[Rfam]
The family of this 94-nucleotide RNA from Triticum turgidum is "skipping-rope RNA".
Lineage of the source: Eukaryota > Streptophyta > Triticodae > Triticinae > Triticum turgidum.
A search with the family's covariance model found it, with a score of 38 bits.
RNA sequence: AGGAAGAGAGGAGGCAAUGGCUGGCCACGCCCCCUCCCGCCCCUUAGUCCGAAUAGGACAAGGAGAGGGGGGCGGUGCCCCCCCCCCCUUUCCU
Numbered sequence: 001a002g003g004a005a006g007a008g009a010g011g012a013g014g015c016a017a018u019g020g021c022u023g024g025c026c027a028c029g030c031c032c033c034c035u036c037c038c039g040c041c042c043c044u045u046a047g048u049c050c051g052a053a054u055a056g057g058a059c060a061a062g063g064a065g066a067g068g069g070g071g072g073c074g075g076u077g078c079c080c081c082c083c084c085c086c087c088c089u090u091u092c093c094u
Stems, first nucleotide, its partner, number of pairs: 001094006008087001011028001013026003019079003030063001032057002068086005